The record is a 74-nucleotide RNA from Aminomonas paucivorans, which matches "tRNA" in Rfam.
Rfam's curators write: Transfer RNA (tRNA) molecules are approximately 80 nucleotides in length.
A search with the family's covariance model found it, with a score of 68 bits.
Lineage of the source: Bacteria > Thermotogati > Synergistota > Synergistia > Aminomonas paucivorans.
RNA sequence: GCGCCGGUAGCUCAACUGGAUAGAGCAUCGGACUACGGAUCCGAAGGUUACGGGUUCAAAUCCUGUCCGGCGCG
Numbered sequence: 001g002c003g004c005c006g007g008u009a010g011c012u013c014a015a016c017u018g019g020a021u022a023g024a025g026c027a028u029c030g031g032a033c034u035a036c037g038g039a040u041c042c043g044a045a046g047g048u049u050a051c052g053g054g055u056u057c058a059a060a061u062c063c064u065g066u067c068c069g070g071c072g073c074g
Stems, first nucleotide, its partner, number of pairs: 001073007010026004028044005050066005